[Rfam]
Acido-Lenti-1 RNA: a 46-nucleotide RNA from Desulfonema limicola. The source organism's lineage runs through Bacteria, Pseudomonadati, Thermodesulfobacteriota, Desulfobacteria and Desulfonema. It is annotated as a small RNA.

RNA sequence: CACGGGAAUAAAUUCCCGUGCUAUUCCCUAUCGUCCCUACGGGACU
Numbered sequence: 001c002a003c004g005g006g007a008a009u010a011a012a013u014u015c016c017c018g019u020g021c022u023a024u025u026c027c028c029u030a031u032c033g034u035c036c037c038u039a040c041g042g043g044a045c046u
Stems, first nucleotide, its partner, number of pairs: 001020008033045005